Rfam assigns this 75-nucleotide sequence from Haemonchus placei to the family "mir-5928 microRNA precursor family".
Pairs were carried over by alignment from the consensus structure, which was predicted with RNAalifold.
The family has 5 seed sequences and 1,672 matches in Rfam 15.1.
A search with the family's covariance model found it, with a score of 67 bits.
NCBI's taxonomy places the organism under Eukaryota, Nematoda, Rhabditida, Rhabditina, Haemonchus.
[Rfam]
RNA sequence: GGCACAAACUUGAAGUAGAGUGGAUUGUUAUGGUCAGCUGAUCCUACUAAUCCACUCCACUUCAAAUUUAGGCCA
Numbered sequence: 001g002g003c004a005c006a007a008a009c010u011u012g013a014a015g016u017a018g019a020g021u022g023g024a025u026u027g028u029u030a031u032g033g034u035c036a037g038c039u040g041a042u043c044c045u046a047c048u049a050a051u052c053c054a055c056u057c058c059a060c061u062u063c064a065a066a067u068u069u070a071g072g073c074c075a
Base pairs, nucleotide, nucleotide: 001074002073003072006069007068008067011064012063013062014061015060016059018057019056020055021054022053023052025050026049027048029046030045032043033042034041035040